[Rfam]
RNA sequence: AAGUGACAACACGGGAGUCCCGAGGAACGCGGGGCUGAGAGGGGGCCUGCCGGCCCCGACCGUUAUGACCUGAACCGGAUCAUGCCGGCGCAGGGAGUGAGGUGGAUGUCGUGUC
Numbered sequence: 001a002a003g004u005g006a007c008a009a010c011a012c013g014g015g016a017g018u019c020c021c022g023a024g025g026a027a028c029g030c031g032g033g034g035c036u037g038a039g040a041g042g043g044g045g046c047c048u049g050c051c052g053g054c055c056c057c058g059a060c061c062g063u064u065a066u067g068a069c070c071u072g073a074a075c076c077g078g079a080u081c082a083u084g085c086c087g088g089c090g091c092a093g094g095g096a097g098u099g100a101g102g103u104g105g106a107u108g109u110c111g112u113g114u115c
Base pairs, nucleotide, nucleotide: 006103007102010099011063012062013061014060017035018034019033020032021031042057043056044055045054046053069094070093071092072091075088076087077086078085
TPP riboswitch aptamer (THI element): a 115-nucleotide RNA from Rhodococcus sp. SMB37. NCBI's taxonomy places the organism under Bacteria, Actinomycetota, Actinomycetes, Nocardiaceae, Rhodococcus.